RNA sequence: GUCGCAGGAGGUCAACGCCCGGCGGCGCGAUGCGCUCCCGGGCGCGAAACGC
Numbered sequence: 001g002u003c004g005c006a007g008g009a010g011g012u013c014a015a016c017g018c019c020c021g022g023c024g025g026c027g028c029g030a031u032g033c034g035c036u037c038c039c040g041g042g043c044g045c046g047a048a049a050c051g052c
Stems, first nucleotide, its partner, number of pairs: 016044007025035004
Dot-bracket structure: ...............(((((((..((((...))))..)))))))........
Background
This 52-nucleotide RNA from Rhodoblastus sp. belongs to the Rfam family "ffh sRNA". By type it is a small RNA. The match comes from Rfam's covariance-model search (48 bits).